[Rfam]
RNA sequence: CUUGGCCCGGCUCCUCCCCCCCCGAGCCGCGCCAAGGUGACGACCCCCGCUCUCCCCCCCGGCGGGGGUCGUCUCUU
Number, nucleotide and partner (000 for none) at each position: 001c000002u035003u034004g033005g032006c031007c000008c029009g028010g027011c026012u025013c024014c000015u000016c000017c000018c000019c000020c000021c000022c000023c000024g013025a012026g011027c010028c009029g008030c000031g006032c005033c004034a003035a002036g000037g000038u000039g073040a072041c071042g070043a069044c068045c067046c066047c065048c064049g063050c062051u061052c000053u000054c000055c000056c000057c000058c000059c000060c000061g051062g050063c049064g048065g047066g046067g045068g044069u043070c042071g041072u040073c039074u000075c000076u000077u000
Rfam assigns this 77-nucleotide RNA from Actinocrinis puniceicyclus to the family "6C RNA". A reference for the family is Weinberg et al. (2007), "Identification of 22 candidate structured RNAs in bacteria using the CMfinder comparative genomics pipeline", Nucleic Acids Res. Rfam classes the family as a cis-regulatory element. Its family is annotated with sporulation in the Gene Ontology.